[Rfam]
RNA sequence: UGACGGGGGCCCGCACAAGCGGUGGAGCAUGUGGUUUAAUUCGAUGAUACGCGAGGAACCUUACCAGGGCUUAAAUGUAGGUUGCAUUAGCUAGAGAUAGCUAUUUCUUCGGACUACUUACAAGGUGCUGCAUGGUUGUCGUCAGCUCGUGCCGUGAGGUGUCAGGUUAAGUCCUAUAACGAGCGCAACCCUUGUCGUUAGUUGCCAGCAUUUAAAGAUGGGGACUCUAACGAGACUGCCGGUGCAAACCGAGAGGAAGGUGGGGAUGACGUCAAAUCAUCACGGCCCUUACGUCCUGGGCUACACACGUGCUACAAUGGUAUGGACAGAGAGCAGCCACCUGGCAACAGGGAGCGAAUCUACAAACCAUAUCACAGUUCGGAUCGGAGUCUGCAACUCGACUCCGUGAAGCUGGAAUCGCUAGUAAUCGCAUAUCAGCCAUGAUGCGGUGAAUACGUUCCCGGGCCUUGUACACACCGCCCGUCAAGCCAUGGAAGCUGGGGGUACCUGAAGUCGGUCACCGCAAGGAGCCGCCUAGGGUAAAACUGGUAACUAGGGCUAAGUCGUAACAAGGUAGCCGUACCGGAAGGUGCGGCUGGA
Number, nucleotide and partner (000 for none) at each position: 001u474002g473003a471004c470005g469006g000007g468008g467009g466010c465011c464012c463013g462014c000015a458016c457017a000018a000019g421020c420021g419022g418023u417024g315025g000026a313027g312028c311029a310030u309031g308032u307033g306034g304035u303036u000037u000038a000039a000040u055041u054042c053043g052044a000045u000046g000047a000048u000049a000050c000051g000052c043053g042054a041055g040056g000057a000058a000059c000060c000061u000062u000063a000064c299065c298066a297067g296068g295069g294070c293071u000072u000073a000074a000075a000076u122077g121078u120079a000080g118081g117082u116083u000084g114085c000086a000087u000088u103089a102090g101091c100092u099093a098094g000095a000096g000097a000098u093099a092100g091101c090102u089103a088104u000105u000106u113107c112108u000109u000110c000111g000112g107113a106114c084115u000116a082117c081118u080119u000120a078121c077122a076123a000124g288125g287126u000127g286128c285129u284130g283131c000132a000133u282134g281135g277136u276137u275138g273139u000140c271141g270142u000143c000144a000145g184146c183147u182148c181149g180150u179151g160152c159153c158154g000155u000156g000157a000158g153159g152160u151161g000162u000163c000164a175165g174166g173167u000168u000169a000170a000171g000172u000173c166174c165175u164176a000177u000178a000179a150180c149181g148182a147183g146184c145185g000186c000187a000188a000189c000190c265191c264192u263193u262194g000195u233196c232197g231198u230199u229200a228201g227202u000203u000204g000205c222206c221207a000208g000209c220210a219211u218212u000213u000214a000215a000216a000217g000218a211219u210220g209221g206222g205223g000224a000225c000226u000227c201228u200229a199230a198231c197232g196233a195234g000235a000236c256237u255238g000239c253240c251241g250242g249243u248244g000245c000246a000247a000248a243249c242250c241251g240252a000253g239254a000255g237256g236257a000258a000259g000260g000261u000262g193263g192264g191265g190266a000267u000268g000269a000270c141271g140272u000273c138274a000275a137276a136277u135278c000279a000280u000281c134282a133283c130284g129285g128286c127287c125288c124289u000290u000291a000292c000293g070294u069295c068296c067297u066298g065299g064300g000301c000302u000303a035304c034305a000306c033307a032308c031309g030310u029311g028312c027313u026314a000315c024316a000317a000318u000319g373320g372321u371322a370323u369324g368325g367326a000327c000328a000329g000330a000331g000332a361333g360334c000335a000336g355337c354338c000339a000340c000341c350342u349343g348344g000345c000346a000347a000348c343349a342350g341351g000352g000353a000354g337355c336356g000357a000358a000359u000360c333361u332362a000363c000364a000365a000366a000367c325368c324369a323370u322371a321372u320373c319374a000375c000376a000377g000378u000379u000380c411381g000382g000383a000384u000385c406386g405387g404388a403389g402390u401391c400392u000393g000394c000395a000396a000397c000398u000399c000400g391401a390402c389403u388404c387405c386406g385407u000408g000409a000410a000411g380412c000413u000414g000415g000416a000417a023418u022419c021420g020421c019422u000423a000424g000425u000426a000427a450428u449429c448430g447431c446432a445433u444434a000435u000436c000437a000438g000439c000440c000441a000442u000443g000444a433445u432446g431447c430448g429449g428450u427451g000452a000453a000454u000455a000456c000457g016458u015459u000460c000461c000462c013463g012464g011465g010466c009467c008468u007469u005470g004471u003472a000473c002474a001475c000476a000477c573478c000479g570480c000481c000482c566483g565484u000485c000486a000487a560488g559489c558490c557491a000492u555493g554494g553495a000496a000497g550498c549499u548500g547501g546502g000503g000504g000505u542506a541507c540508c539509u000510g000511a000512a000513g535514u000515c533516g532517g531518u530519c000520a000521c528522c527523g000524c000525a000526a000527g522528g521529a000530g518531c517532c516533g515534c000535c513536u000537a000538g000539g508540g507541u506542a505543a000544a000545a000546c501547u500548g499549g498550u497551a000552a000553c494554u493555a492556g000557g490558g489559c488560u487561a000562a000563g000564u000565c483566g482567u000568a000569a000570c479571a000572a000573g477574g000575u598576a597577g596578c595579c594580g593581u592582a591583c590584c589585g000586g000587a000588a000589g584590g583591u582592g581593c580594g579595g578596c577597u576598g575599g000600a000
RNA: Bacterial small subunit ribosomal RNA, nucleotides 908 to 1507
Organism: Lutibacter oricola